[Rfam]
RNA sequence: GUUUUGGUCGGAAACCAAAGCAUAACACAGGCAGGAG
Numbered sequence: 001g002u003u004u005u006g007g008u009c010g011g012a013a014a015c016c017a018a019a020g021c022a023u024a025a026c027a028c029a030g031g032c033a034g035g036a037g
Stems, first nucleotide, its partner, number of pairs: 001021008
Dot-bracket structure: ((((((((.....))))))))................
L31-Coriobacteria ribosomal protein leader: a 37-nucleotide RNA sequence from Bucorvus abyssinicus. Pairs were carried over by alignment from the consensus structure, which is taken from published work. A reference for the family is Eckert and Weinberg (2020), "Discovery of 20 novel ribosomal leader candidates in bacteria and archaea", BMC Microbiol.